RNA sequence: AAAAACUAUAGAGGAGCUUCCUACAUUAGUAAAUAGUUGAGCAGGCGUGCAACGAAACUAUUGAAAGGGUAAGGAUGCCGAAUUGAUUAUCUGGGCACAGAAAUCGAUGGCAACAAUGCAUAACAGUUUGUUGUUCUUUGGAAAAUUCCAUUGGAGCUAUAGUCUAC
Numbered sequence: 001a002a003a004a005a006c007u008a009u010a011g012a013g014g015a016g017c018u019u020c021c022u023a024c025a026u027u028a029g030u031a032a033a034u035a036g037u038u039g040a041g042c043a044g045g046c047g048u049g050c051a052a053c054g055a056a057a058c059u060a061u062u063g064a065a066a067g068g069g070u071a072a073g074g075a076u077g078c079c080g081a082a083u084u085g086a087u088u089a090u091c092u093g094g095g096c097a098c099a100g101a102a103a104u105c106g107a108u109g110g111c112a113a114c115a116a117u118g119c120a121u122a123a124c125a126g127u128u129u130g131u132u133g134u135u136c137u138u139u140g141g142a143a144a145a146u147u148c149c150a151u152u153g154g155a156g157c158u159a160u161a162g163u164c165u166a167c
Stems, first nucleotide, its partner, number of pairs: 006162006016078002019075003022071003032062007082108006090101004109135008118127002139150004
RNA: Lysine riboswitch aptamer
Organism: Mycoplasma miroungigenitalium